[Rfam]
RNA: MIR396 microRNA precursor family
Organism: Camellia sinensis
RNA sequence: UGUCAUGUUUUUCCACAGCUUUCUUGAACUUCAUGAUCUAGAGAUUUGGAGAGAGAGACAAAGAGAACAAUACCUGAAGUUCAAGGAAGCUGUGGGAAGACAUGGCAA
Numbered sequence: 001u002g003u004c005a006u007g008u009u010u011u012u013c014c015a016c017a018g019c020u021u022u023c024u025u026g027a028a029c030u031u032c033a034u035g036a037u038c039u040a041g042a043g044a045u046u047u048g049g050a051g052a053g054a055g056a057g058a059c060a061a062a063g064a065g066a067a068c069a070a071u072a073c074c075u076g077a078a079g080u081u082c083a084a085g086g087a088a089g090c091u092g093u094g095g096g097a098a099g100a101c102a103u104g105g106c107a108a
Stems, first nucleotide, its partner, number of pairs: 003105005013095003017091006024084004029079005